Shown here is a 77-nucleotide RNA from Anabarilius grahami, a member of the family "mir-1 microRNA precursor family". NCBI's taxonomy places the organism under Eukaryota, Opisthokonta, Teleostei, Cypriniphysae, Anabarilius. About the family: This family represents the microRNA (miRNA) mir-1 family. miRNAs are transcribed as ~70nt precursors (modelled here) and subsequently processed by the Dicer enzyme to give a ~22nt product. In this case the mature sequence comes from the 3' arm of the precursor. The extents of the hairpin precursors are not generally known and are estimated based on hairpin prediction.
RNA sequence: AAACAGUUGAUGGACCCCAUUGACUUCCAUAGGAUUUUUUUCAUACUAUGGAAGUCAAUGGGGUCCAUCAACUGUUU
Numbered sequence: 001a002a003a004c005a006g007u008u009g010a011u012g013g014a015c016c017c018c019a020u021u022g023a024c025u026u027c028c029a030u031a032g033g034a035u036u037u038u039u040u041u042c043a044u045a046c047u048a049u050g051g052a053a054g055u056c057a058a059u060g061g062g063g064u065c066c067a068u069c070a071a072c073u074g075u076u077u
Base pairs, nucleotide, nucleotide: 007071008070009069010068011067012066013065014064015063016062017061018060019059020058021057022056023055024054025053027051028050029049030048031047
Notes: The base pairs follow the family's consensus structure, which was predicted with RNAalifold.